A member of the RNA family "Vertebrate telomerase RNA" from Silurus meridionalis, 347 nucleotides long. The family is grouped with related families in Rfam's "Telomerase clan". The literature on the family includes a 2000 paper in Cell by Chen et al., "Secondary structure of vertebrate telomerase RNA". Taxonomically the source falls in Silurus (Eukaryota, Craniata, Ostariophysi, Siluroidei). A search with the family's covariance model found it, with a score of 76 bits. Telomerase is a ribonucleoprotein reverse transcriptase that synthesises telomeric DNA. Telomerase RNAs differ greatly in sequence and structure between vertebrates, ciliates and yeasts, but they share a 5' pseudoknot structure close to the template sequence. The family's consensus secondary structure is taken from published work.
[Rfam]
RNA sequence: UGGGUUCAGAGAGUGCACCUUCUAACCCUAGAUUUGUUGCCGCUUCCUGUCCGAUGUGGUUACUGUUUUUUCCCUCCAGCUUUCAGUAAGUAACAGGAAGUUUUCCCGAGUUCUCCCGGUUUUUGUAAGGGAAAAAAAGCUUGGAGCGUGCUCUCUGAAGCUCGGUGUCUCUGGUGUGAGGGUGGCGUGUUGCGGACAGCCAGGCUGCCGCUAAGAGCUCUCCACUCUGCCGCACGGCACCCGAGCUCCGGAGGGUCAAACCCGCACCGAGCAGAUCAACCUGAGCACGGCUGCACGCUGCACAUCAUCCCAGUGAUCAUGCAGAAGGAGCCACUGCUCAAACAUGC
Numbered sequence: 001u002g003g004g005u006u007c008a009g010a011g012a013g014u015g016c017a018c019c020u021u022c023u024a025a026c027c028c029u030a031g032a033u034u035u036g037u038u039g040c041c042g043c044u045u046c047c048u049g050u051c052c053g054a055u056g057u058g059g060u061u062a063c064u065g066u067u068u069u070u071u072c073c074c075u076c077c078a079g080c081u082u083u084c085a086g087u088a089a090g091u092a093a094c095a096g097g098a099a100g101u102u103u104u105c106c107c108g109a110g111u112u113c114u115c116c117c118g119g120u121u122u123u124u125g126u127a128a129g130g131g132a133a134a135a136a137a138a139g140c141u142u143g144g145a146g147c148g149u150g151c152u153c154u155c156u157g158a159a160g161c162u163c164g165g166u167g168u169c170u171c172u173g174g175u176g177u178g179a180g181g182g183u184g185g186c187g188u189g190u191u192g193c194g195g196a197c198a199g200c201c202a203g204g205c206u207g208c209c210g211c212u213a214a215g216a217g218c219u220c221u222c223c224a225c226u227c228u229g230c231c232g233c234a235c236g237g238c239a240c241c242c243g244a245g246c247u248c249c250g251g252a253g254g255g256u257c258a259a260a261c262c263c264g265c266a267c268c269g270a271g272c273a274g275a276u277c278a279a280c281c282u283g284a285g286c287a288c289g290g291c292u293g294c295a296c297g298c299u300g301c302a303c304a305u306c307a308u309c310c311c312a313g314u315g316a317u318c319a320u321g322c323a324g325a326a327g328g329a330g331c332c333a334c335u336g337c338u339c340a341a342a343c344a345u346g347c
Stems, first nucleotide, its partner, number of pairs: 006158008015147002018144002043100005057092002060089006076139001081137003161271007170252005176246002180242003186236005192211004197207004214228004283339004289332004294327001298324005305316001